RNA sequence: AAAUUAUCAAGAGUGGUGGAGGGACUGGCCCUAAGAAACCCGGCAACCUGCAAUAUGCGUGGUGCCAAUUCCAGCGGAAAGACCGAUAGAUGAUUG
Number, nucleotide and partner (000 for none) at each position: 001a000002a095003a094004u093005u092006a091007u090008c089009a000010a000011g000012a000013g041014u000015g040016g039017u038018g000019g000020a000021g031022g030023g029024a000025c074026u073027g072028g071029c023030c022031c021032u000033a000034a000035g000036a000037a000038a017039c016040c015041c013042g066043g065044c064045a063046a000047c062048c061049u059050g058051c057052a056053a000054u000055a000056u052057g051058c050059g049060u000061g048062g047063u045064g044065c043066c042067a000068a000069u000070u088071c028072c027073a026074g025075c085076g084077g083078a000079a000080a000081g000082a000083c077084c076085g075086a000087u000088a070089g008090a007091u006092g005093a004094u003095u002096g000
The family of this 96-nucleotide sequence from Urinicoccus massiliensis is "SAM riboswitch aptamer (S box leader)". The SAM riboswitch is found upstream of a number of genes which code for proteins involved in methionine or cysteine biosynthesis in Gram-positive bacteria. The source organism's lineage runs through Bacteria, Tissierellia, Tissierellales, Peptoniphilaceae and Urinicoccus.